RNA: Selenocysteine transfer RNA
Organism: Sulfuriroseicoccus oceanibius
RNA sequence: CGGAGAGUGAUGGGUGCCUGGUGGCCUCCGCGGUCUUCAAAACCGUUGUGACUUCUAACCGGAGUCAGGUUGGUUCGAUUCCUUCCCUCUCCG
Number, nucleotide and partner (000 for none) at each position: 001c093002g092003g091004a090005g089006a088007g087008u000009g085010a000011u000012g028013g027014g026015u000016g025017c024018c023019u000020g000021g000022u000023g018024g017025c016026c014027u013028c012029c000030g046031c045032g044033g043034u042035c000036u000037u000038c000039a000040a000041a000042a034043c033044c032045g031046u030047u000048g000049u067050g066051a065052c064053u063054u000055c000056u000057a000058a000059c000060c000061g000062g000063a053064g052065u051066c050067a049068g000069g000070u000071u000072g082073g081074u000075u000076c000077g000078a000079u000080u000081c073082c072083u000084u000085c009086c000087c007088u006089c005090u004091c003092c002093g001